The record is a 189-nucleotide RNA from Ectobacillus ponti, which matches "Group II catalytic intron D1-D4-5" in Rfam. The literature on the family includes a 2001 paper in Trends Genet by Bonen and Vogel, "The ins and outs of group II introns". A search with the family's covariance model found it, with a score of 97 bits. Pairs were carried over by alignment from the consensus structure. From the family's description: Group II introns are found in rRNA, tRNA and mRNA of organelles in fungi, plants and protists, and also in mRNA in bacteria.
RNA sequence: CACAACUGAACCGAUGAAUGGUAGGAAUGAAAGCCGUCAUGCUGAGCUGAAACUACCUCUCUAAAACUCCUACAUGCACGAGGAUGUGAUGAAAUCCGACUGUAUGACGCUAGGGAAAGUCGGUUGAACUUAUGCUAGAGCCGCUUUGUGGAAGUAGGUAUGCAUAAGGAUAGAUCGGGAGGCUGUAAA
Numbered sequence: 001c002a003c004a005a006c007u008g009a010a011c012c013g014a015u016g017a018a019u020g021g022u023a024g025g026a027a028u029g030a031a032a033g034c035c036g037u038c039a040u041g042c043u044g045a046g047c048u049g050a051a052a053c054u055a056c057c058u059c060u061c062u063a064a065a066a067c068u069c070c071u072a073c074a075u076g077c078a079c080g081a082g083g084a085u086g087u088g089a090u091g092a093a094a095u096c097c098g099a100c101u102g103u104a105u106g107a108c109g110c111u112a113g114g115g116a117a118a119g120u121c122g123g124u125u126g127a128a129c130u131u132a133u134g135c136u137a138g139a140g141c142c143g144c145u146u147u148g149u150g151g152a153a154g155u156a157g158g159u160a161u162g163c164a165u166a167a168g169g170a171u172a173g174a175u176c177g178g179g180a181g182g183c184u185g186u187a188a189a
Base pairs, nucleotide, nucleotide: 018058020057021056022055023054024053032048033047034046059181060180061179062178069114070113071112072111073106074105075104076103077102078101082097083096084095085094121177122176123175124174125173129168130167131166132165133164134163135154136153142150143149156161